[Rfam]
RNA sequence: CUCCCCGAAAUAUAUUUAGGUAUAGCCUCGCAAAGUAAGUAACGGGGGUAGAGCACUGGAUGGGCUAGGGGUCUUACCGGAUUACCAAACCUAACCAAACUCCGAAUACCGUUAACUGUUAUUGCGGGAGUCAGACUGCGGGUGAUAAGAUCCGCGGUCGAAAGGGAAAGAGCCCAGACCGCCAGCUAAGGUCCCAAAAUCUACGCUAAGUGGAAAACGAUGUGGAAAUGCCCAGACAACCAGGAGGUUGGCUUAGAAGCAGCCACCCUUUAAAGAAAGCGUAAUAGCUCACUGGUCGAGUGGGUCUGCGCGGAAAAUGUAACGGGGCUAAGCGUAGUACCGAAGCUGCGGAUUGGAUCCUUAAGGAUCCAGUGGUAGGGGAGCAUUGUGUAAGCCUGCGAAGGUCGACCGUGAGGACGGCUGGAGGUAUCACAAGAGAUUAU
Numbered sequence: 001c002u003c004c005c006c007g008a009a010a011u012a013u014a015u016u017u018a019g020g021u022a023u024a025g026c027c028u029c030g031c032a033a034a035g036u037a038a039g040u041a042a043c044g045g046g047g048g049u050a051g052a053g054c055a056c057u058g059g060a061u062g063g064g065c066u067a068g069g070g071g072u073c074u075u076a077c078c079g080g081a082u083u084a085c086c087a088a089a090c091c092u093a094a095c096c097a098a099a100c101u102c103c104g105a106a107u108a109c110c111g112u113u114a115a116c117u118g119u120u121a122u123u124g125c126g127g128g129a130g131u132c133a134g135a136c137u138g139c140g141g142g143u144g145a146u147a148a149g150a151u152c153c154g155c156g157g158u159c160g161a162a163a164g165g166g167a168a169a170g171a172g173c174c175c176a177g178a179c180c181g182c183c184a185g186c187u188a189a190g191g192u193c194c195c196a197a198a199a200u201c202u203a204c205g206c207u208a209a210g211u212g213g214a215a216a217a218c219g220a221u222g223u224g225g226a227a228a229u230g231c232c233c234a235g236a237c238a239a240c241c242a243g244g245a246g247g248u249u250g251g252c253u254u255a256g257a258a259g260c261a262g263c264c265a266c267c268c269u270u271u272a273a274a275g276a277a278a279g280c281g282u283a284a285u286a287g288c289u290c291a292c293u294g295g296u297c298g299a300g301u302g303g304g305u306c307u308g309c310g311c312g313g314a315a316a317a318u319g320u321a322a323c324g325g326g327g328c329u330a331a332g333c334g335u336a337g338u339a340c341c342g343a344a345g346c347u348g349c350g351g352a353u354u355g356g357a358u359c360c361u362u363a364a365g366g367a368u369c370c371a372g373u374g375g376u377a378g379g380g381g382a383g384c385a386u387u388g389u390g391u392a393a394g395c396c397u398g399c400g401a402a403g404g405u406c407g408a409c410c411g412u413g414a415g416g417a418c419g420g421c422u423g424g425a426g427g428u429a430u431c432a433c434a435a436g437a438g439a440u441u442a443u
Base pairs, nucleotide, nucleotide: 001383002382003381004380005379006378011024012023013022014021015020026130027128028127029126030125031124032123033122036121038117039116040114041113042112043111044110045109051103052101053100057097058096059095061093062092063091064090068086069085070083071082072081073080074079134159135158136157137156138155139154140153141152142151143150164175165174166173179351180350181349182348184347185346186345190341191340192339199338201337202336203335204334205333206332218312219311222309223308224307225306226305229302230301231300239296240295241294242293243292245269246268247267250264251263252262270274275290279288280287352373353372354371355370356369357368358367359366384438386435387434388433389432390431394428395427396426403422404421405420406419407418409416410415

Shown here is a 443-nucleotide part of an RNA from Citrifermentans bemidjiense, a member of the family "Bacterial large subunit ribosomal RNA". The organism belongs to Citrifermentans bemidjiense, within Bacteria. The family's consensus secondary structure is taken from published work.